ZMP/ZTP riboswitch aptamer (pfl RNA motif): a 98-nucleotide RNA sequence from Streptomyces sp. NRRL WC-3605.
The source organism's lineage runs through Bacteria, Bacillati, Actinomycetota, Actinomycetes and Streptomyces.
A reference for the family is Kim et al. (2015), "An ancient riboswitch class in bacteria regulates purine biosynthesis and one-carbon metabolism", Mol Cell.
A search with the family's covariance model found it, with a score of 45 bits.
RNA sequence: CUCACGGGCCGUGACUGGCGCGCUGGGAUGGACCAACCAUCGGGGAGCGGCCCCCUGGACCUCGUCCAGACCGAGUGCCGUGCGCCUGGGCCGUCCCG
Numbered sequence: 001c002u003c004a005c006g007g008g009c010c011g012u013g014a015c016u017g018g019c020g021c022g023c024u025g026g027g028a029u030g031g032a033c034c035a036a037c038c039a040u041c042g043g044g045g046a047g048c049g050g051c052c053c054c055c056u057g058g059a060c061c062u063c064g065u066c067c068a069g070a071c072c073g074a075g076u077g078c079c080g081u082g083c084g085c086c087u088g089g090g091c092c093g094u095c096c097c098g
Stems, first nucleotide, its partner, number of pairs: 006053007015044002017086005028040004077091003